[Rfam]
RNA sequence: AUAUUUUAAAAGCUCCAAACCUGUAAGACCUGAGGCUACUAGCUAUGGAUUGCAGGCGUUAGGGUUAUGUUGGAAACGACAUGAUCUCCCAUUGUGGAAAGGAGAGUUGCUAUUGACUUU
Numbered sequence: 001a002u003a004u005u006u007u008a009a010a011a012g013c014u015c016c017a018a019a020c021c022u023g024u025a026a027g028a029c030c031u032g033a034g035g036c037u038a039c040u041a042g043c044u045a046u047g048g049a050u051u052g053c054a055g056g057c058g059u060u061a062g063g064g065u066u067a068u069g070u071u072g073g074a075a076a077c078g079a080c081a082u083g084a085u086c087u088c089c090c091a092u093u094g095u096g097g098a099a100a101g102g103a104g105a106g107u108u109g110c111u112a113u114u115g116a117c118u119u120u
Stems, first nucleotide, its partner, number of pairs: 003114001013104004020056007029048002034044004062087011088097002
Dot-bracket structure: ..(.........((((...(((((((..((...((((...))))..)).))))))).....(((((((((((....)))))))))))((......))...)))).........)......
Notes: The family of this 120-nucleotide RNA sequence from Andreesenella acetica is "Molybdenum/Tungsten riboswitch aptamer (Moco RNA motif)". The family's consensus secondary structure is taken from published work.